This 78-nucleotide RNA sequence from Halonatronomonas betaini belongs to the Rfam family "c-di-GMP-I riboswitch aptamer".
Pairs were carried over by alignment from the consensus structure, which is taken from published work.
Gene Ontology term of the family: cyclic-di-GMP binding.

[Rfam]
RNA sequence: CCUUGAAAAAGGCAAUCCUGCUGAGAGGCAGAGUCGCAAAGCUAGAUGCCCGUCUAAACGGGUAGUUCGGCUACCGGA
Numbered sequence: 001c002c003u004u005g006a007a008a009a010a011g012g013c014a015a016u017c018c019u020g021c022u023g024a025g026a027g028g029c030a031g032a033g034u035c036g037c038a039a040a041g042c043u044a045g046a047u048g049c050c051c052g053u054c055u056a057a058a059c060g061g062g063u064a065g066u067u068c069g070g071c072u073a074c075c076g077g078a
Stems, first nucleotide, its partner, number of pairs: 012037002018031005040072004045068002048063006